[Rfam]
RNA sequence: CCAGCAGUACCAAAGUGCUCGCAGUGCAGGUAGUUUCACAUCACUCUACUGUGGUGUGGGCACUUCCAGUACUCUCGG
Numbered sequence: 001c002c003a004g005c006a007g008u009a010c011c012a013a014a015g016u017g018c019u020c021g022c023a024g025u026g027c028a029g030g031u032a033g034u035u036u037c038a039c040a041u042c043a044c045u046c047u048a049c050u051g052u053g054g055u056g057u058g059g060g061c062a063c064u065u066c067c068a069g070u071a072c073u074c075u076c077g078g
Stems, first nucleotide, its partner, number of pairs: 004075001006073002009070002013065011025053003029050005

Rfam assigns this 78-nucleotide RNA sequence from Catagonus wagneri to the family "mir-17 microRNA precursor family".
It scores 62 bits against the family's covariance model.
Gene Ontology terms of the family: RISC complex and miRNA-mediated post-transcriptional gene silencing.
Pairs were carried over by alignment from the consensus structure, which was predicted with RNAalifold.
This family represents the microRNA (miRNA) precursor mir-17, family, which includes mir-20, mir-91, and mir-103. miRNAs are transcribed as ~70nt precursors (modelled here) and subsequently processed by the Dicer enzyme to give a ~22nt product. In this case the mature sequence comes from the 3' arm of the precursor. The extents of the hairpin precursors are not generally known and are estimated based on hairpin prediction.
On this family, see Lagos-Quintana et al., Science 2001: "Identification of novel genes coding for small expressed RNAs".